[Rfam]
RNA: Archaeal small subunit ribosomal RNA, nucleotides 1 to 504
Organism: Salinarchaeum laminariae
RNA sequence: AUUCCGGUUGAUCCUGCCGGAGGCCAUUGCUAUCGGGGUCCGAUUUAGCCAUGCUAGUCGCACGAGUUCAUACUCGUGGCAUAUAGCUCAGUAACACGUGGCCAAACUACCCUGUGGACCAGCAUAACCUCGGGAAACUGAGGCUAAUUCUGGAUAUCGCCCACAUCCUGGAGUGGAGUGGGCGUGAAACGUUCCGGCGCCACAGGAUGUGGCUGCGGCCGAUUAGGUAGACGGUGGGGUAACGGCCCACCGUGCCCAUAAUCGGUACGGGUGAUGAGAGUCAGAGCCCGGAGACGGUAUCUGAGACAAGAUACCGGGCCCUACGGGGCGCAGCAGGCGCGAAACCUUUACACUGCACGCGAGUGCGAUAGGGGGACCCCGAGUGCGAGGGCAUACAGUCCUCGCUUUUCACCACUGUAAGGUGGUGGUGGAAUAAGUGCUGGGCAAGACCGGUGCCAGCCGCCGCGGUAAUACCGGCAGCACGAGUGAUGGCCGAUCUUAUUG
Numbered sequence: 001a002u003u004c005c006g007g008u009u010g011a012u013c014c015u016g017c018c019g020g021a022g023g024c025c026a027u028u029g030c031u032a033u034c035g036g037g038g039u040c041c042g043a044u045u046u047a048g049c050c051a052u053g054c055u056a057g058u059c060g061c062a063c064g065a066g067u068u069c070a071u072a073c074u075c076g077u078g079g080c081a082u083a084u085a086g087c088u089c090a091g092u093a094a095c096a097c098g099u100g101g102c103c104a105a106a107c108u109a110c111c112c113u114g115u116g117g118a119c120c121a122g123c124a125u126a127a128c129c130u131c132g133g134g135a136a137a138c139u140g141a142g143g144c145u146a147a148u149u150c151u152g153g154a155u156a157u158c159g160c161c162c163a164c165a166u167c168c169u170g171g172a173g174u175g176g177a178g179u180g181g182g183c184g185u186g187a188a189a190c191g192u193u194c195c196g197g198c199g200c201c202a203c204a205g206g207a208u209g210u211g212g213c214u215g216c217g218g219c220c221g222a223u224u225a226g227g228u229a230g231a232c233g234g235u236g237g238g239g240u241a242a243c244g245g246c247c248c249a250c251c252g253u254g255c256c257c258a259u260a261a262u263c264g265g266u267a268c269g270g271g272u273g274a275u276g277a278g279a280g281u282c283a284g285a286g287c288c289c290g291g292a293g294a295c296g297g298u299a300u301c302u303g304a305g306a307c308a309a310g311a312u313a314c315c316g317g318g319c320c321c322u323a324c325g326g327g328g329c330g331c332a333g334c335a336g337g338c339g340c341g342a343a344a345c346c347u348u349u350a351c352a353c354u355g356c357a358c359g360c361g362a363g364u365g366c367g368a369u370a371g372g373g374g375g376a377c378c379c380c381g382a383g384u385g386c387g388a389g390g391g392c393a394u395a396c397a398g399u400c401c402u403c404g405c406u407u408u409u410c411a412c413c414a415c416u417g418u419a420a421g422g423u424g425g426u427g428g429u430g431g432a433a434u435a436a437g438u439g440c441u442g443g444g445c446a447a448g449a450c451c452g453g454u455g456c457c458a459g460c461c462g463c464c465g466c467g468g469u470a471a472u473a474c475c476g477g478c479a480g481c482a483c484g485a486g487u488g489a490u491g492g493c494c495g496a497u498c499u500u501a502u503u504g
Stems, first nucleotide, its partner, number of pairs: 004020005022494010033382009042340001048338003052335003057080003062077006087293003097217007106210002111206007119153004128143006158184007167176002191198002219265003226256003231253008268290004272283004295316006318329004346372001348371003354367005385405008410430007437483006450477004459466002